[Rfam]
RNA sequence: CAUAAACGACAACUAACAAUUCGUAUAACCCCACAUAACGUUUUUGGACACAGGGUGGGGGUAUCUACGGGAAGCCUUACUUCCACGCUACGAAUGGUAAGCUUUAUUCU
Number, nucleotide and partner (000 for none) at each position: 001c000002a000003u000004a000005a000006a000007c000008g000009a000010c000011a000012a000013c000014u000015a000016a000017c000018a000019a095020u094021u093022c092023g091024u090025a089026u000027a000028a000029c060030c059031c058032c057033a056034c055035a000036u000037a000038a000039c000040g000041u000042u000043u000044u000045u000046g000047g000048a000049c000050a000051c000052a000053g000054g000055g034056u033057g032058g031059g030060g029061g000062u000063a000064u000065c000066u000067a000068c000069g086070g084071g083072a082073a081074g080075c000076c000077u000078u000079a000080c074081u073082u072083c071084c070085a000086c069087g000088c000089u025090a024091c023092g022093a021094a020095u019096g000097g000098u000099a000100a000101g000102c000103u000104u000105u000106a000107u000108u000109c000110u000
RNA: Purine riboswitch aptamer